[Rfam]
Background: Group I catalytic intron: a 244-nucleotide sequence from Mortierella sp. AD011. Rfam describes the family as follows. Group I catalytic introns are large self-splicing ribozymes. The source organism's lineage runs through Eukaryota, Fungi, Mortierellomycetes, Mortierellaceae and Mortierella. The match comes from Rfam's covariance-model search (70 bits).
RNA sequence: AACCACGGAUAAAAUUAAGUCCCUUAGAACAGUAAUGUUCUAAUGCAAAUAGGGAAAAUUGCAAGAACUUCUCUUUUAUAGAGAUAACUUGCAGCGGAGCAUAUAUCAGUGUUUUAGAGGUAUAUGAACGUUCAACGACUAAUCGGUGAGCCACACUAGCAAUAAUCCGGACACGAUAACCCUACAACCAGUUAACUAUAUCAAUUGGUUGAUGACAUAGUCUAAGCCCAGCUGUGAAGUUGGG
Numbered sequence: 001a002a003c004c005a006c007g008g009a010u011a012a013a014a015u016u017a018a019g020u021c022c023c024u025u026a027g028a029a030c031a032g033u034a035a036u037g038u039u040c041u042a043a044u045g046c047a048a049a050u051a052g053g054g055a056a057a058a059u060u061g062c063a064a065g066a067a068c069u070u071c072u073c074u075u076u077u078a079u080a081g082a083g084a085u086a087a088c089u090u091g092c093a094g095c096g097g098a099g100c101a102u103a104u105a106u107c108a109g110u111g112u113u114u115u116a117g118a119g120g121u122a123u124a125u126g127a128a129c130g131u132u133c134a135a136c137g138a139c140u141a142a143u144c145g146g147u148g149a150g151c152c153a154c155a156c157u158a159g160c161a162a163u164a165a166u167c168c169g170g171a172c173a174c175g176a177u178a179a180c181c182c183u184a185c186a187a188c189c190a191g192u193u194a195a196c197u198a199u200a201u202c203a204a205u206u207g208g209u210u211g212a213u214g215a216c217a218u219a220g221u222c223u224a225a226g227c228c229c230a231g232c233u234g235u236g237a238a239g240u241u242g243g244g
Base pairs, nucleotide, nucleotide: 001016028039029038030037050184051183052182053181060093061092062091063090064089065088070084071083072082073081074080094131095130101125102124107120135223137222138221139220140219141218187209188208189207190206191205192204193203195201229242230241231240232239233238